[Rfam]
RNA sequence: CAGUUCGUUUCCAAGGGCUAUGGCUGGUUGUGGCCAUGGAAUCUCCAACUGCAUGCCAAAGUAACUGGAAUGACUUUGACAGCCCAGACCAGCACAGGGCCUGUAGCUGCCACUCAGCUUUCCUAUAAAU
Numbered sequence: 001c002a003g004u005u006c007g008u009u010u011c012c013a014a015g016g017g018c019u020a021u022g023g024c025u026g027g028u029u030g031u032g033g034c035c036a037u038g039g040a041a042u043c044u045c046c047a048a049c050u051g052c053a054u055g056c057c058a059a060a061g062u063a064a065c066u067g068g069a070a071u072g073a074c075u076u077u078g079a080c081a082g083c084c085c086a087g088a089c090c091a092g093c094a095c096a097g098g099g100c101c102u103g104u105a106g107c108u109g110c111c112a113c114u115c116a117g118c119u120u121u122c123c124u125a126u127a128a129a130u
Stems, first nucleotide, its partner, number of pairs: 011039002016035007067123004072118001082110002085103003